[Rfam]
RNA sequence: CCGCUGACCCCGCCCGGUGGAUGCCUGGGCUCGGGAGCCGAAGAAGGGCGUGGCAAGCUGCGAUAAGCCAGGGGGAGGCGCACGCAGCCGUUGAUCCCUGGAUCCCCGAAUGGGACCUCCUGCCCGGGGGUUAACCCCGGGCGCCCCGAUAAGGGGCGGGAACGCGGGGAAGUGAAACAUCUCAGUACCCGCAGGAAAAGAAAGAGAAAUUCGAUGGCGGGAGUAGGGGCGACCGAAACCGCCGUAGCCCAAACUGAAUCCCGUAGGGAAACCUACGGGAGAUGUGGGGUUGUUGGGGGUGGCGGCUUUCCCUCCCGCGGGAACCCGAACUCCGGUGGAAGUCCGGGGCCGUAGAGGGUGACAGCCCCGUAGGGGUAACCGCGGAGGGAGUGCCGCCACUUCCAGAGUACCGCGCCUCGGAUAUGGCGCGGGAAGCUGGGGGACACACGCCCCCAAGGCUAAAUACUCCCCGAGUCCGAUAGCGGACUAGUAGGGUGACCGAAAGGUGAAAGAGAACCCGUGGAAGGGAGUGAAAAAGAGCCUGAAACCGGGCGGGGAUAGUCA
Numbered sequence: 001c002c003g004c005u006g007a008c009c010c011c012g013c014c015c016g017g018u019g020g021a022u023g024c025c026u027g028g029g030c031u032c033g034g035g036a037g038c039c040g041a042a043g044a045a046g047g048g049c050g051u052g053g054c055a056a057g058c059u060g061c062g063a064u065a066a067g068c069c070a071g072g073g074g075g076a077g078g079c080g081c082a083c084g085c086a087g088c089c090g091u092u093g094a095u096c097c098c099u100g101g102a103u104c105c106c107c108g109a110a111u112g113g114g115a116c117c118u119c120c121u122g123c124c125c126g127g128g129g130g131u132u133a134a135c136c137c138c139g140g141g142c143g144c145c146c147c148g149a150u151a152a153g154g155g156g157c158g159g160g161a162a163c164g165c166g167g168g169g170a171a172g173u174g175a176a177a178c179a180u181c182u183c184a185g186u187a188c189c190c191g192c193a194g195g196a197a198a199a200g201a202a203a204g205a206g207a208a209a210u211u212c213g214a215u216g217g218c219g220g221g222a223g224u225a226g227g228g229g230c231g232a233c234c235g236a237a238a239c240c241g242c243c244g245u246a247g248c249c250c251a252a253a254c255u256g257a258a259u260c261c262c263g264u265a266g267g268g269a270a271a272c273c274u275a276c277g278g279g280a281g282a283u284g285u286g287g288g289g290u291u292g293u294u295g296g297g298g299g300u301g302g303c304g305g306c307u308u309u310c311c312c313u314c315c316c317g318c319g320g321g322a323a324c325c326c327g328a329a330c331u332c333c334g335g336u337g338g339a340a341g342u343c344c345g346g347g348g349c350c351g352u353a354g355a356g357g358g359u360g361a362c363a364g365c366c367c368c369g370u371a372g373g374g375g376u377a378a379c380c381g382c383g384g385a386g387g388g389a390g391u392g393c394c395g396c397c398a399c400u401u402c403c404a405g406a407g408u409a410c411c412g413c414g415c416c417u418c419g420g421a422u423a424u425g426g427c428g429c430g431g432g433a434a435g436c437u438g439g440g441g442g443a444c445a446c447a448c449g450c451c452c453c454c455a456a457g458g459c460u461a462a463a464u465a466c467u468c469c470c471c472g473a474g475u476c477c478g479a480u481a482g483c484g485g486a487c488u489a490g491u492a493g494g495g496u497g498a499c500c501g502a503a504a505g506g507u508g509a510a511a512g513a514g515a516a517c518c519c520g521u522g523g524a525a526g527g528g529a530g531u532g533a534a535a536a537a538g539a540g541c542c543u544g545a546a547a548c549c550g551g552g553c554g555g556g557g558a559u560a561g562u563c564a
Base pairs, nucleotide, nucleotide: 008557009556010555011554012553013552014551015550016549017548023542024506025505028477029476030474031473032472033471034470035469036467037466046107047106048105049062050061051060068101069100070099071098072097073096077089078088079087112121113120114119144156145155146154147153163194164192165191166190167189168188174181175180204212205211216243217242218241219240220239226234227233246460247459248458249457254287255286256285264275265274266273267272298397299396300395301394308390309389310388311387324374325373326372330347332346333345334344335343350354356368357367358366410431411430412429413428414427415426416425438454439453440452441451442450493500494499
The family of this 564-nucleotide part of an RNA from Nanoarchaeum equitans is "Archaeal large subunit ribosomal RNA". The family has 91 seed sequences and 2,955 matches in Rfam 15.1. Pairs were carried over by alignment from the consensus structure, which is taken from published work. Its Rfam clan is "LSU clan". Lineage of the source: Archaea > Nanobdellati > Nanobdellota > Nanoarchaeales > Nanoarchaeum equitans.